Shown here is a 271-nucleotide RNA sequence from Takahashivirus PBS1, a member of the family "Group I catalytic intron". It scores 93 bits against the family's covariance model. The base pairs follow the family's consensus structure, which is taken from published work. Lineage of the source: Viruses > Heunggongvirae > Uroviricota > Caudoviricetes > Takahashivirus PBS1. For this family Rfam cites "Self-splicing of group I introns" (Cech, Annu Rev Biochem, 1990).
[Rfam]
RNA sequence: UUAUAUGGUUAAAUUUUUAGCCCAUUAUAAUAGUGAUAUUAUAAUGAAUCCUUCUUAACUGCUGGGAUAUCCUUUUAGGACAAUCAGCAUCCAAGCAUUGUUAUAUAAAUAACAAUGAAGGUUCAACGACUAUCGAAACCGACUUAUCAGAUCGUUGUGAUAACGCUAGAUAUGGGUAAGGGAGUAGAGUACGACUCAAGCGAUUGGAGUUGGAAAUGGAAGGCAUCUCAAUGAGAUGAAGAUAUAGUCUCAUCUUCAUGGUAACAUGGAG
Dot-bracket structure: ....((((.(.((...)).).))))...(((......))).........[[[[.[....((((((....((((...))))...)))))).(........(((((....))))).......)....(.(((((.....................................................................................].]]]]..((((...))))........)))))).....(((((....)))))..